This 141-nucleotide sequence from Sapajus apella belongs to the Rfam family "U4 spliceosomal RNA".

[Rfam]
RNA sequence: AGGUUUGCACAGUGGCAGUAUUGUAGCCAAUGAGGUUUAUCCAAGGCACGAUUAUUGCUAAUUGAAAACUUUUCCCAAUGCCCCACCAUGACGACUUGAAAUGUAGUUGGCACUGGUAAUUUUUGACAGUCUCUAUGGAGA
Numbered sequence: 001a002g003g004u005u006u007g008c009a010c011a012g013u014g015g016c017a018g019u020a021u022u023g024u025a026g027c028c029a030a031u032g033a034g035g036u037u038u039a040u041c042c043a044a045g046g047c048a049c050g051a052u053u054a055u056u057g058c059u060a061a062u063u064g065a066a067a068a069c070u071u072u073u074c075c076c077a078a079u080g081c082c083c084c085a086c087c088a089u090g091a092c093g094a095c096u097u098g099a100a101a102u103g104u105a106g107u108u109g110g111c112a113c114u115g116g117u118a119a120u121u122u123u124u125g126a127c128a129g130u131c132u133c134u135a136u137g138g139a140g141a
Base pairs, nucleotide, nucleotide: 020052021051022050023049024048026047027046028045034042035041085117086116087115089112090111092109093108094107095106096105130141131140132139133138
Dot-bracket structure: ...................(((((.(((.....((.....))..))))))))................................(((.((.(((((........))))).))..)))............((((....))))
Rfam's curators write: U4 small nuclear RNA (U4 snRNA) is a component of the major U2-dependent spliceosome.